[Rfam]
RNA sequence: AACGAGAGAAUGACAAAUUAGAUUUUUUUUCUUGAUUUUUAGCAUUUUUAGUUGGAUUUAAAAUUUCUCAGGAGGAAAAAGGUUGAAAAUCAAGAGUAAAAAUCUGAUUUGUCAUUCUCUUAUU
Numbered sequence: 001a002a003c004g005a006g007a008g009a010a011u012g013a014c015a016a017a018u019u020a021g022a023u024u025u026u027u028u029u030u031c032u033u034g035a036u037u038u039u040u041a042g043c044a045u046u047u048u049u050a051g052u053u054g055g056a057u058u059u060a061a062a063a064u065u066u067c068u069c070a071g072g073a074g075g076a077a078a079a080a081g082g083u084u085g086a087a088a089a090u091c092a093a094g095a096g097u098a099a100a101a102a103u104c105u106g107a108u109u110u111g112u113c114a115u116u117c118u119c120u121u122a123u124u
Stems, first nucleotide, its partner, number of pairs: 001124002004121024029096011041084002045080004
MIR7504 microRNA precursor family: a 124-nucleotide RNA from Gossypium davidsonii. The match comes from Rfam's covariance-model search (89 bits). Lineage of the source: Eukaryota > eudicotyledons > rosids > malvids > Gossypium.